[Rfam]
This 53-nucleotide RNA from Liparis tanakae belongs to the Rfam family "UnaL2 LINE 3' element". On this family, see Baba et al., RNA 2004: "Solution structure of an RNA stem-loop derived from the 3' conserved region of eel LINE UnaL2". The family's consensus secondary structure is taken from published work. A search with the family's covariance model found it, with a score of 59 bits.

RNA sequence: AAUGCACUUAUUGUAAGUCGCUUUGGAUAAAAGCGUCUGCUGAAUGACAUGUA
Dot-bracket structure: ...........((((...((((((.....))))))..))).)...........